Shown here is a 119-nucleotide RNA sequence from Acetomicrobium mobile, a member of the family "Molybdenum/Tungsten riboswitch aptamer (Moco RNA motif)". Rfam links the family to the GO terms tungstate binding, regulation of gene expression and molybdenum ion binding.
RNA sequence: UAUUUAUAUAACCUCCGAGUCAAUGGUUCUAAGGGUAAUUGCCUAUGAACGUUGACCGAUAGGGUCUUUUCGGAAACGAAAGGGCCUCCCGUCUGGAAAGGAGGAAGCGAUACUGUUGA
Dot-bracket structure: ...(.......(((((..(((((((.(((...((((....))))..)))))))))).....(((((((((((....)))))))))))((.....))...))))).......).......